[Rfam]
The record is a 114-nucleotide sequence from Mauremys mutica, which matches "mraW RNA" in Rfam.
A search with the family's covariance model found it, with a score of 50 bits.
The organism belongs to Mauremys, within Eukaryota.
By type it is a cis-regulatory element.
Rfam 15.1 lists 851 matches to the family in 821 species.

RNA sequence: UAACAAUGGAGACGUUCCCGCUCGGGCUGGAAUCCAGGCUCUGAGACCCUUCCCCCUUGCUGGGUUCCAGAGCCCGGGCUCCAGCCCGAGUGGGAAUGUCGACACUGCUAUUUU
Numbered sequence: 001u002a003a004c005a006a007u008g009g010a011g012a013c014g015u016u017c018c019c020g021c022u023c024g025g026g027c028u029g030g031a032a033u034c035c036a037g038g039c040u041c042u043g044a045g046a047c048c049c050u051u052c053c054c055c056c057u058u059g060c061u062g063g064g065u066u067c068c069a070g071a072g073c074c075c076g077g078g079c080u081c082c083a084g085c086c087c088g089a090g091u092g093g094g095a096a097u098g099u100c101g102a103c104a105c106u107g108c109u110a111u112u113u114u
Stems, first nucleotide, its partner, number of pairs: 011100006018093002021090011033078003037074007045066005